[Rfam]
RNA sequence: GCCUCAAGCUAGGGGUGCCUGAGUAAAUGUCCAGGCUGAGAUUACACCCUCGGAACCUGAGACUGGGUAAUACCAGCGAAGGGAAGCGUUGAUCAAGAUCA
Numbered sequence: 001g002c003c004u005c006a007a008g009c010u011a012g013g014g015g016u017g018c019c020u021g022a023g024u025a026a027a028u029g030u031c032c033a034g035g036c037u038g039a040g041a042u043u044a045c046a047c048c049c050u051c052g053g054a055a056c057c058u059g060a061g062a063c064u065g066g067g068u069a070a071u072a073c074c075a076g077c078g079a080a081g082g083g084a085a086g087c088g089u090u091g092a093u094c095a096a097g098a099u100c101a
Base pairs, nucleotide, nucleotide: 006089008087009086010085011050012049013048014047016044017036018035019034020033021032056082057081058080063076064075065074066073
RNA: TPP riboswitch aptamer (THI element)
Organism: filamentous cyanobacterium CCP2